[Rfam]
This 118-nucleotide RNA sequence from Treponema phagedenis belongs to the Rfam family "TD-2 RNA". Lineage of the source: Bacteria > Spirochaetota > Spirochaetia > Treponematales > Treponema. By type it is a small RNA. Its Rfam clan is "TD (Treponema denticola) motifs".
RNA sequence: ACGGGCACGGACGCCCGUGGUUCCACGCAGCAGCGACGUUUUAAAAGCACAACCGCUUUCCAGUGCUUUUAAAACUCGCAGGCAUAAUUUUGCCACGGACGGCAAAAUUAUGCCGUUG
Numbered sequence: 001a002c003g004g005g006c007a008c009g010g011a012c013g014c015c016c017g018u019g020g021u022u023c024c025a026c027g028c029a030g031c032a033g034c035g036a037c038g039u040u041u042u043a044a045a046a047g048c049a050c051a052a053c054c055g056c057u058u059u060c061c062a063g064u065g066c067u068u069u070u071a072a073a074a075c076u077c078g079c080a081g082g083c084a085u086a087a088u089u090u091u092g093c094c095a096c097g098g099a100c101g102g103c104a105a106a107a108u109u110a111u112g113c114c115g116u117u118g
Base pairs, nucleotide, nucleotide: 001018002017003016004015005014006013034078035077036076038075039074040073041072042071043070044069045068046067047066048065049064050063081114082113083112084111085110086109087108088107089106090105091104092103093102094101